[Rfam]
RNA sequence: ACUUCCUACAAUGCGCACAUACUUAAUGAUUGGUAAUUCCUUACUAGUUAAUGAGUUUCGGACUUAAGUAUGAUGUUGUGUUUGCAUAGAGUUCGGGAAACCGAACUUGGGUAACAAAAUAAGUUACUCAUUUACUUCCUGUAUUAUUUAAACCUUUUGGUUAAGCGCCACUCCUUUGAGUGGCGUUUUUUUGC
Numbered sequence: 001a002c003u004u005c006c007u008a009c010a011a012u013g014c015g016c017a018c019a020u021a022c023u024u025a026a027u028g029a030u031u032g033g034u035a036a037u038u039c040c041u042u043a044c045u046a047g048u049u050a051a052u053g054a055g056u057u058u059c060g061g062a063c064u065u066a067a068g069u070a071u072g073a074u075g076u077u078g079u080g081u082u083u084g085c086a087u088a089g090a091g092u093u094c095g096g097g098a099a100a101c102c103g104a105a106c107u108u109g110g111g112u113a114a115c116a117a118a119a120u121a122a123g124u125u126a127c128u129c130a131u132u133u134a135c136u137u138c139c140u141g142u143a144u145u146a147u148u149u150a151a152a153c154c155u156u157u158u159g160g161u162u163a164a165g166c167g168c169c170a171c172u173c174c175u176u177u178g179a180g181u182g183g184c185g186u187u188u189u190u191u192u193g194c
Stems, first nucleotide, its partner, number of pairs: 011064001014061001017056002023054003027050010089108008110128006164187008
Shown here is a 194-nucleotide RNA sequence from Rodentibacter trehalosifermentans, a member of the family "GcvB RNA". A reference for the family is Righetti et al. (2016), "Temperature-responsive in vitro RNA structurome of Yersinia pseudotuberculosis", Proc Natl Acad Sci U S A. From the family's description: The gcvB gene encodes a small untranslated RNA involved in expression of the dipeptide and oligopeptide transport systems in Escherichia coli. Included several unknown homologues in alignment (Bateman A pers obs). It base-pairs with SorC. This interaction triggers the degradation of GcvB by RNase E, alleviating the GcvB-mediated mRNA repression of other amino acid-related transport and metabolic genes. Its family is annotated with regulation of gene expression and mRNA binding in the Gene Ontology. The match comes from Rfam's covariance-model search (116 bits). The organism belongs to Rodentibacter, within Bacteria.